[Rfam]
RNA sequence: GGAAUUCGUGCGGACAACUUCCUCCUCCCAUUGCCCGCACGAUGUGACCGUCGAUCCUCCUCCUCCCGAUCGUCGGUCGUGAAAAUGGCGCUCGCUGGACCUCCUCCCCCAGCGAGCGCUAUUU
Numbered sequence: 001g002g003a004a005u006u007c008g009u010g011c012g013g014a015c016a017a018c019u020u021c022c023u024c025c026u027c028c029c030a031u032u033g034c035c036c037g038c039a040c041g042a043u044g045u046g047a048c049c050g051u052c053g054a055u056c057c058u059c060c061u062c063c064u065c066c067c068g069a070u071c072g073u074c075g076g077u078c079g080u081g082a083a084a085a086u087g088g089c090g091c092u093c094g095c096u097g098g099a100c101c102u103c104c105u106c107c108c109c110c111a112g113c114g115a116g117c118g119c120u121a122u123u124u
Stems, first nucleotide, its partner, number of pairs: 007041003011037003015033003046078005052072004088119011
A member of the RNA family "Alphaproteobacterial ar14" from Pararhizobium mangrovi, 124 nucleotides long. The base pairs follow the family's consensus structure. Taxonomically the source falls in Pararhizobium (Bacteria, Pseudomonadati, Alphaproteobacteria, Rhizobiaceae). The family has 118 seed sequences and 784 matches in Rfam 15.1.